A member of the RNA family "Purine riboswitch aptamer" from Clostridium perfringens, 98 nucleotides long.
The sequence is in the family's curated seed alignment.
The base pairs follow the family's consensus structure, which is taken from published work.
[Rfam]
Nucleotides: 098
Base pairs, nucleotide, nucleotide: 019083020082021081022080023079024078025077029047030046031045032044033043034042056074057073058072059071060070061069
Number, partner (000 for none) and nucleotide at each position: 001000a002000a003000a004000a005000c006000g007000g008000a009000a010000u011000a012000u013000a014000a015000a016000c017000a018000a019083a020082c021081u022080c023079g024078u025077a026000u027000a028000a029047g030046c031045u032044u033043u034042g035000a036000a037000u038000a039000a040000g041000g042034c043033a044032a045031g046030g047029c048000g049000u050000u051000u052000c053000u054000a055000c056074c057073g058072g059071a060070a061069a062000c063000c064000u065000u066000a067000a068000a069061u070060u071059u072058c073057c074056g075000u076000c077025u078024a079023u080022g081021a082020g083019u084000g085000a086000a087000u088000u089000u090000g091000a092000u093000a094000u095000a096000c097000u098000a